[Rfam]
RNA sequence: CGAGUCGGCCAGGCGAUCGCGGCAUCGGGUGACCGGUGUCGAGGAAAGUCCGGACUCCGAUGAGCAGGGUGGUGGGUAACACCCACCCGGGGUGACCCGCGGGACAGUGCCACAGAAAGCAAACCGCCCGAUGAUCAUCGGUCAUCGGGUAAGGGUGAAACGGUGGUGUAAGAGACCACCAGCGGUCCAGGUGACUGGGCCGGCUCGGUAAACCCCACCCGGAGCAAGAUCAAGAAGGGGGCGCUUCGGCGCCUCCGCGGAAGCCGCUCGAGGGCUGCUCGCCCGAGGUUUCCGGGUAGAUCGCACCAGGCCGUCGGCAACGACGGUCGCAGAUGGAUGAUCGCCACCGCCUCCGGGCGGUACAGAAUCCGGCUUACCGGCCGGCUCGCCCC
Numbered sequence: 001c002g003a004g005u006c007g008g009c010c011a012g013g014c015g016a017u018c019g020c021g022g023c024a025u026c027g028g029g030u031g032a033c034c035g036g037u038g039u040c041g042a043g044g045a046a047a048g049u050c051c052g053g054a055c056u057c058c059g060a061u062g063a064g065c066a067g068g069g070u071g072g073u074g075g076g077u078a079a080c081a082c083c084c085a086c087c088c089g090g091g092g093u094g095a096c097c098c099g100c101g102g103g104a105c106a107g108u109g110c111c112a113c114a115g116a117a118a119g120c121a122a123a124c125c126g127c128c129c130g131a132u133g134a135u136c137a138u139c140g141g142u143c144a145u146c147g148g149g150u151a152a153g154g155g156u157g158a159a160a161c162g163g164u165g166g167u168g169u170a171a172g173a174g175a176c177c178a179c180c181a182g183c184g185g186u187c188c189a190g191g192u193g194a195c196u197g198g199g200c201c202g203g204c205u206c207g208g209u210a211a212a213c214c215c216c217a218c219c220c221g222g223a224g225c226a227a228g229a230u231c232a233a234g235a236a237g238g239g240g241g242c243g244c245u246u247c248g249g250c251g252c253c254u255c256c257g258c259g260g261a262a263g264c265c266g267c268u269c270g271a272g273g274g275c276u277g278c279u280c281g282c283c284c285g286a287g288g289u290u291u292c293c294g295g296g297u298a299g300a301u302c303g304c305a306c307c308a309g310g311c312c313g314u315c316g317g318c319a320a321c322g323a324c325g326g327u328c329g330c331a332g333a334u335g336g337a338u339g340a341u342c343g344c345c346a347c348c349g350c351c352u353c354c355g356g357g358c359g360g361u362a363c364a365g366a367a368u369c370c371g372g373c374u375u376a377c378c379g380g381c382c383g384g385c386u387c388g389c390c391c392c
Stems, first nucleotide, its partner, number of pairs: 001388010012345007020041009046375003050372005055224004062280004067220005072086005087101001088099004102215002107213002109209003124154002126150009162180006182204001183202008228302004238293004242288001272284004309328008

Record summary
Bacterial RNase P class A: a 392-nucleotide RNA from Microlunatus soli. Rfam classes the family as a ribozyme. The base pairs follow the family's consensus structure, which is taken from published work. The organism belongs to Microlunatus, within Bacteria. A search with the family's covariance model found it, with a score of 305 bits.